[Rfam]
The record is a 182-nucleotide RNA from Evansella cellulosilytica, which matches "Lysine riboswitch aptamer" in Rfam. The organism belongs to Evansella cellulosilytica, within Bacteria. Rfam links the family to the GO term lysine biosynthetic process. Rfam's curators write: Riboswitches are metabolite binding domains within certain messenger RNAs that serve as precision sensors for their corresponding targets.
RNA sequence: AGUGAAGGUAGAGGUGCGAAAACCAUCAGUAAACUAUGAGAGAAGGUUGAGCUUCAAAGAUCAUAGCUUGAAAGGGGAAUUCGCCGAAGAAGAAAUGUUUUCUCAACGACAAUCUUCUGGAUCUGUAUUGAAUAAGUACAGAACUGUCAUGCAGGAGAACUGCAUGGAGCACUAUCUCACGG
Numbered sequence: 001a002g003u004g005a006a007g008g009u010a011g012a013g014g015u016g017c018g019a020a021a022a023c024c025a026u027c028a029g030u031a032a033a034c035u036a037u038g039a040g041a042g043a044a045g046g047u048u049g050a051g052c053u054u055c056a057a058a059g060a061u062c063a064u065a066g067c068u069u070g071a072a073a074g075g076g077g078a079a080u081u082c083g084c085c086g087a088a089g090a091a092g093a094a095a096u097g098u099u100u101u102c103u104c105a106a107c108g109a110c111a112a113u114c115u116u117c118u119g120g121a122u123c124u125g126u127a128u129u130g131a132a133u134a135a136g137u138a139c140a141g142a143a144c145u146g147u148c149a150u151g152c153a154g155g156a157g158a159a160c161u162g163c164a165u166g167g168a169g170c171a172c173u174a175u176c177u178c179a180c181g182g
Base pairs, nucleotide, nucleotide: 006177007176008175009174010173011172016084017083018082019081020080023077024076032069033068034066035065036064037063038062039061088118089117090116091115092114093113096111097110098109099108119145120144122142123141124140125139126138127137128136129135147167148166149165150164151163152162153161